Small nucleolar RNA snoR8a: an 87-nucleotide RNA from Eragrostis curvula. Taxonomically the source falls in Eragrostis (Eukaryota, Tracheophyta, Spermatophyta, Mesangiospermae). It is annotated as a C/D-box small nucleolar RNA. It scores 60 bits against the family's covariance model. The base pairs follow the family's consensus structure, which was predicted with WAR.

[Rfam]
RNA sequence: UGUGGUGCGGUGAUUAUAAAACAUUCCUCGUCCUGAUCGGGAGAAUCCCUGUGAUCGACUCCUUACACCCAUAGAAUCUGAGCACCA
Numbered sequence: 001u002g003u004g005g006u007g008c009g010g011u012g013a014u015u016a017u018a019a020a021a022c023a024u025u026c027c028u029c030g031u032c033c034u035g036a037u038c039g040g041g042a043g044a045a046u047c048c049c050u051g052u053g054a055u056c057g058a059c060u061c062c063u064u065a066c067a068c069c070c071a072u073a074g075a076a077u078c079u080g081a082g083c084a085c086c087a
Stems, first nucleotide, its partner, number of pairs: 003087002006084002